[Rfam]
RNA sequence: CUUUUUUACGCAUAAUACAUCACCUUUGUACAUUUUACUGUUCCUGUUGUAAUAGUGACAGGUAUAGAAAAACGUAUUGCAUAGUUGUACAGUUCCUAUUAUGCGUAUCAAAGAUAAAACCAUGCUGCCAAAACGGAAAUAAAAAAAACCGUUAUUUGGCAGCAUACUUUCCCUGCGUCAAAAAUCACAUCAUCAUUUCCAGACGACGGUUUAACAAAAGCCGCCGUCUUUUUUUGCCUGAAAUAC
Numbered sequence: 001c002u003u004u005u006u007u008a009c010g011c012a013u014a015a016u017a018c019a020u021c022a023c024c025u026u027u028g029u030a031c032a033u034u035u036u037a038c039u040g041u042u043c044c045u046g047u048u049g050u051a052a053u054a055g056u057g058a059c060a061g062g063u064a065u066a067g068a069a070a071a072a073c074g075u076a077u078u079g080c081a082u083a084g085u086u087g088u089a090c091a092g093u094u095c096c097u098a099u100u101a102u103g104c105g106u107a108u109c110a111a112a113g114a115u116a117a118a119a120c121c122a123u124g125c126u127g128c129c130a131a132a133a134c135g136g137a138a139a140u141a142a143a144a145a146a147a148a149c150c151g152u153u154a155u156u157u158g159g160c161a162g163c164a165u166a167c168u169u170u171c172c173c174u175g176c177g178u179c180a181a182a183a184a185u186c187a188c189a190u191c192a193u194c195a196u197u198u199c200c201a202g203a204c205g206a207c208g209g210u211u212u213a214a215c216a217a218a219a220g221c222c223g224c225c226g227u228c229u230u231u232u233u234u235u236g237c238c239u240g241a242a243a244u245a246c
Base pairs, nucleotide, nucleotide: 001113002112003111004110007107008106011103013101014100015099016098017097028077029076030075031074033072034071035070036069038067039066040065041064043062044061045060046059047058048057049056050055078091079090081088082087123164124163125162126161127160128159129158130157131156133152134151135150136149201229202228203227204226205225207223208222209221210220211219212218
RNA: Cis-regulator of HTH transcription factor